[Rfam]
RNA sequence: GGCGGAGGGAAGCUCAUCGGUGGGGCUACGAGCUGAGUGCGUCACGUCACUCCACCCCAUGUCCCCUGGGAAGGUCUGAGACUAGGGCCAGCAGCGGCCCUAACAGGGCUCUCCCUGAGUGCGGGGAGGUGAGUUCCCAGAGAAUGGGGCUCCGCGCGAGGGCAGACUGGGCAGGAGAUGCCGUGGACCCGCUCCCGGACGGGCCCGGCGGAUGCCUCCUUAAGCGGAGCUUGGAACAGACUCACGGCCGGCGCAGUGAGUUCAAUGGCUGAGGUGAGGCACCCCGCGGGGCCUCAUAACCCAAUUCAGACUACUCUCCCCGCGCC
Numbered sequence: 001g002g003c004g005g006a007g008g009g010a011a012g013c014u015c016a017u018c019g020g021u022g023g024g025g026c027u028a029c030g031a032g033c034u035g036a037g038u039g040c041g042u043c044a045c046g047u048c049a050c051u052c053c054a055c056c057c058c059a060u061g062u063c064c065c066c067u068g069g070g071a072a073g074g075u076c077u078g079a080g081a082c083u084a085g086g087g088c089c090a091g092c093a094g095c096g097g098c099c100c101u102a103a104c105a106g107g108g109c110u111c112u113c114c115c116u117g118a119g120u121g122c123g124g125g126g127a128g129g130u131g132a133g134u135u136c137c138c139a140g141a142g143a144a145u146g147g148g149g150c151u152c153c154g155c156g157c158g159a160g161g162g163c164a165g166a167c168u169g170g171g172c173a174g175g176a177g178a179u180g181c182c183g184u185g186g187a188c189c190c191g192c193u194c195c196c197g198g199a200c201g202g203g204c205c206c207g208g209c210g211g212a213u214g215c216c217u218c219c220u221u222a223a224g225c226g227g228a229g230c231u232u233g234g235a236a237c238a239g240a241c242u243c244a245c246g247g248c249c250g251g252c253g254c255a256g257u258g259a260g261u262u263c264a265a266u267g268g269c270u271g272a273g274g275u276g277a278g279g280c281a282c283c284c285c286g287c288g289g290g291g292c293c294u295c296a297u298a299a300c301c302c303a304a305u306u307c308a309g310a311c312u313a314c315u316c317u318c319c320c321c322g323c324g325c326c
Base pairs, nucleotide, nucleotide: 001326002325003324004323008319009318010317013273014272015271016270018268022066023065024064025063035052036051037050038049039048040046076309077308078307079306080305086249087248088247089246096110097109098108099107100106111128112127113126114125115124116123129245130244131243132242133241134240135239149230150229151228152227153226154225155224274297275296276295277294278293279292280291
The record is a 326-nucleotide RNA sequence from Tupaia belangeri, which matches "Nuclear RNase P" in Rfam. Rfam links the family to the GO terms tRNA processing, ribonuclease P complex and ribonuclease P activity. Rfam classes the family as a ribozyme. The organism belongs to Tupaia, within Eukaryota. Its Rfam clan is "RNaseP clan".